[Rfam]
RNA: sok antitoxin (CssrC)
RNA sequence: GGGUGCUUGAGGCUGUUUGCCUGGAGCAUUCGUGAAAGGCAGACAGAGAAAAGCCCCAGUUAACAUUCGGCGUCUUGCAGGACGCUUAACAUUAAACUGAGGCCACAUCUAUGCUCUACACACGUAGAUUAGCCUCUUACGGACCGAAAGGUCAAGGAGAAGCAGGCUAUG
Numbered sequence: 001g002g003g004u005g006c007u008u009g010a011g012g013c014u015g016u017u018u019g020c021c022u023g024g025a026g027c028a029u030u031c032g033u034g035a036a037a038g039g040c041a042g043a044c045a046g047a048g049a050a051a052a053g054c055c056c057c058a059g060u061u062a063a064c065a066u067u068c069g070g071c072g073u074c075u076u077g078c079a080g081g082a083c084g085c086u087u088a089a090c091a092u093u094a095a096a097c098u099g100a101g102g103c104c105a106c107a108u109c110u111a112u113g114c115u116c117u118a119c120a121c122a123c124g125u126a127g128a129u130u131a132g133c134c135u136c137u138u139a140c141g142g143a144c145c146g147a148a149a150g151g152u153c154a155a156g157g158a159g160a161a162g163c164a165g166g167c168u169a170u171g
Stems, first nucleotide, its partner, number of pairs: 001057003005054004013046010026033002058098004062093002066089002099136005107129005114124001140162001145157001